Small nucleolar RNA SNORD83: a 73-nucleotide RNA from Hibiscus syriacus. A reference for the family is Jady and Kiss (2000), "Characterisation of the U83 and U84 small nucleolar RNAs: two novel 2'-O-ribose methylation guide RNAs that lack complementarities to ribosomal RNAs", Nucleic Acids Res. It is annotated as a C/D-box small nucleolar RNA.
RNA sequence: GUUACUUAUAUGUUUUAGACAAUGAGAGUUUUGCGCAAUGUUGAAUUUUUCAUGCCUCCAGUGACUGAUAACU
Numbered sequence: 001g002u003u004a005c006u007u008a009u010a011u012g013u014u015u016u017a018g019a020c021a022a023u024g025a026g027a028g029u030u031u032u033g034c035g036c037a038a039u040g041u042u043g044a045a046u047u048u049u050u051c052a053u054g055c056c057u058c059c060a061g062u063g064a065c066u067g068a069u070a071a072c073u
Stems, first nucleotide, its partner, number of pairs: 001072004026036001028034002